[Rfam]
RNA: Small nucleolar RNA SNORD59
RNA sequence: CCUUCACUGAUGAAUAACCCUUUGACUUUCGUUCUACUGAGUUUGCUGAAGCAACGUUUGUUGUCUGAGGAGG
Numbered sequence: 001c002c003u004u005c006a007c008u009g010a011u012g013a014a015u016a017a018c019c020c021u022u023u024g025a026c027u028u029u030c031g032u033u034c035u036a037c038u039g040a041g042u043u044u045g046c047u048g049a050a051g052c053a054a055c056g057u058u059u060g061u062u063g064u065c066u067g068a069g070g071a072g073g
Stems, first nucleotide, its partner, number of pairs: 001073003005069001
Dot-bracket structure: (((.(...............................................................).)))